[Rfam]
RNA sequence: AGGCCUCAAAUAAUGUGUGACUACCCCCUAAAUUUAAGCAUAUUAAUAAGGGGAGGAAAAGAAACUAACAAGGAUUCCCCGAGUAGCUGCGAGCGAAAAGGGAAGAGCUCAGCACGCAGGGGUGGCGCACUACCCGCGUCUACCCGGUUCCGUGUACUGGAAAUUUUGUCAUCUGCCAUGCCCGGCGCAGUGUCCAAGUUCAACUAGAAUGUGGCUUUUACUCCCAUAGAGGGUGAUAGGCCCGUAGGACGGCGCUGAUGGUGGAAAAUUUUUCCAUGGAGUCGUGUUGCUUGAUAGUGCAGCACAAAGUGGGAGGUAAACUCCUUCUAAAGCUAAAUAUCACCACGAGACCGAUAGCGAACAAGUACCGUGAGGGAAAGUUGAAAAGCACUCUGAAUAGAGAGUCAAAAAGUACGUGAAACUGCCUAGGACUCAAG
Number, nucleotide and partner (000 for none) at each position: 001a000002g000003g000004c000005c000006u000007c000008a000009a000010a000011u000012a000013a000014u000015g000016u000017g000018u000019g000020a000021c000022u000023a000024c055025c053026c052027c051028c050029u049030a000031a000032a000033u000034u000035u042036a041037a000038g000039c000040a000041u036042a035043u000044u000045a000046a000047u000048a000049a029050g028051g027052g026053g025054a000055g024056g000057a000058a000059a000060a000061g000062a000063a000064a000065c072066u071067a000068a000069c000070a000071a066072g065073g000074a000075u000076u103077c102078c101079c100080c000081g000082a000083g000084u000085a000086g094087c093088u000089g000090c000091g000092a000093g087094c086095g000096a000097a000098a000099a000100g079101g078102g077103a076104a000105g000106a334107g333108c332109u331110c000111a000112g000113c154114a153115c152116g151117c000118a149119g148120g145121g144122g143123u142124g140125g139126c138127g137128c136129a000130c000131u000132a000133c000134c000135c000136g128137c127138g126139u125140c124141u000142a123143c122144c121145c120146g000147g000148u119149u118150c000151c116152g115153u114154g113155u000156a000157c000158u000159g275160g274161a272162a271163a270164u000165u000166u268167u267168g000169u265170c000171a000172u000173c000174u000175g000176c000177c000178a000179u000180g000181c000182c000183c257184g256185g255186c254187g253188c252189a000190g000191u251192g250193u249194c248195c000196a000197a000198g215199u000200u214201c213202a000203a212204c211205u000206a000207g000208a000209a000210u000211g204212u203213g201214g200215c198216u000217u000218u000219u000220a000221c000222u000223c000224c000225c229226a000227u000228a000229g225230a000231g000232g242233g241234u000235g000236a000237u000238a000239g000240g000241c233242c232243c000244g000245u000246a000247g000248g194249a193250c192251g191252g188253c187254g186255c185256u184257g183258a000259u000260g000261g000262u000263g000264g000265a169266a000267a167268a166269u000270u163271u162272u161273u000274c160275c159276a000277u000278g000279g000280a000281g000282u000283c000284g305285u304286g303287u302288u301289g300290c299291u000292u000293g000294a000295u000296a000297g000298u000299g290300c289301a288302g287303c286304a285305c284306a000307a000308a000309g000310u000311g328312g327313g326314a325315g324316g000317u000318a000319a000320a000321c000322u000323c000324c315325u314326u313327c312328u311329a000330a000331a109332g108333c107334u106335a000336a000337a000338u000339a000340u000341c000342a000343c000344c000345a000346c000347g000348a000349g000350a000351c000352c000353g000354a000355u000356a000357g000358c000359g000360a000361a000362c000363a000364a000365g000366u000367a000368c375369c374370g000371u000372g000373a000374g369375g368376g000377a000378a000379a000380g000381u000382u000383g000384a000385a000386a000387a000388g000389c000390a000391c402392u401393c400394u399395g000396a000397a000398u000399a394400g393401a392402g391403a000404g000405u000406c000407a000408a000409a000410a000411a000412g000413u000414a000415c000416g000417u000418g000419a000420a000421a000422c000423u000424g000425c000426c000427u000428a000429g000430g000431a000432c000433u000434c000435a000436a000437g000